[Rfam]
A member of the RNA family "Early nodulin 40" from Leersia perrieri, 232 nucleotides long. NCBI's taxonomy places the organism under Eukaryota, Poales, Poaceae, Oryzoideae, Leersia. The family's consensus secondary structure is taken from published work. On this family, see Gultyaev and Roussis, Nucleic Acids Res 2007: "Identification of conserved secondary structures and expansion segments in enod40 RNAs reveals new enod40 homologues in plants".
RNA sequence: AUGGUGGGCGCAUGGCAGGAGAAUCUCCAUGGUUCUUGAGAUCAGGAGCAGCAUAGGCAGUAUGAGGAUGGAGAAGAAUGGCUGGGCUGUUCCUCCUCCUCAAGAACUCUUUCAGUUUGUCCAUGCCUUUCAUGGGCUAAUUCCCUGGACUCCAGAAGUGCGGGUCGCUUAGGAAGGUAUGAACAAACCGGCAAGUCAUAAAUCGGCGAUGGUGAACUCCAACAGGAGUCUA
Numbered sequence: 001a002u003g004g005u006g007g008g009c010g011c012a013u014g015g016c017a018g019g020a021g022a023a024u025c026u027c028c029a030u031g032g033u034u035c036u037u038g039a040g041a042u043c044a045g046g047a048g049c050a051g052c053a054u055a056g057g058c059a060g061u062a063u064g065a066g067g068a069u070g071g072a073g074a075a076g077a078a079u080g081g082c083u084g085g086g087c088u089g090u091u092c093c094u095c096c097u098c099c100u101c102a103a104g105a106a107c108u109c110u111u112u113c114a115g116u117u118u119g120u121c122c123a124u125g126c127c128u129u130u131c132a133u134g135g136g137c138u139a140a141u142u143c144c145c146u147g148g149a150c151u152c153c154a155g156a157a158g159u160g161c162g163g164g165u166c167g168c169u170u171a172g173g174a175a176g177g178u179a180u181g182a183a184c185a186a187a188c189c190g191g192c193a194a195g196u197c198a199u200a201a202a203u204c205g206g207c208g209a210u211g212g213u214g215a216a217c218u219c220c221a222a223c224a225g226g227a228g229u230c231u232a
Stems, first nucleotide, its partner, number of pairs: 059100002115188006216229004